This 214-nucleotide RNA from Olea europaea belongs to the Rfam family "MIR168 microRNA precursor family". A search with the family's covariance model found it, with a score of 74 bits. Rfam links the family to the GO terms RISC complex and miRNA-mediated post-transcriptional gene silencing.
RNA sequence: AUUGCGGCGGUCUCUAAUUCGCUUGGUGCAGGUCGGGAACUUUCUUCGCCGGUUAUGUCGUUUCAACUUUCACGUGAAUAUUCCAAACGCCAAAAUCGUGCUCAUAUAAAUAUGUAUGGAUUUCUGUAUGUAUAAACAAACUAAUUGAUGUCGUUGUAUUUGGCGAAAAUCAGGUUCCCGCCUUGCACUAAGCAAAUUAGAGACCGCGGUGAAU
Numbered sequence: 001a002u003u004g005c006g007g008c009g010g011u012c013u014c015u016a017a018u019u020c021g022c023u024u025g026g027u028g029c030a031g032g033u034c035g036g037g038a039a040c041u042u043u044c045u046u047c048g049c050c051g052g053u054u055a056u057g058u059c060g061u062u063u064c065a066a067c068u069u070u071c072a073c074g075u076g077a078a079u080a081u082u083c084c085a086a087a088c089g090c091c092a093a094a095a096u097c098g099u100g101c102u103c104a105u106a107u108a109a110a111u112a113u114g115u116a117u118g119g120a121u122u123u124c125u126g127u128a129u130g131u132a133u134a135a136a137c138a139a140a141c142u143a144a145u146u147g148a149u150g151u152c153g154u155u156g157u158a159u160u161u162g163g164c165g166a167a168a169a170u171c172a173g174g175u176u177c178c179c180g181c182c183u184u185g186c187a188c189u190a191a192g193c194a195a196a197u198u199a200g201a202g203a204c205c206g207c208g209g210u211g212a213a214u
Stems, first nucleotide, its partner, number of pairs: 013201002017197003023191010034180005040174002